TPP riboswitch aptamer (THI element): a 101-nucleotide RNA sequence. From the family's description: Vitamin B(1) in its active form thiamin pyrophosphate (TPP) is an essential coenzyme that is synthesised by coupling of pyrimidine and thiazole moieties in bacteria. Its family is annotated with thiamine pyrophosphate binding in the Gene Ontology.

[Rfam]
RNA sequence: AAUAACAUUGCGGGGUGCUCUUAUCUGCUUGAGAGCUGAGAAAACACCCAUUGAACCUGAUCUGGAUCAUACCAGCGUAGGGAAAUAUGAAGAAGGGCAAU
Dot-bracket structure: .....(((...(((.((((((((......))))))).......)..)))......((((..((((......))))..)))).....)))............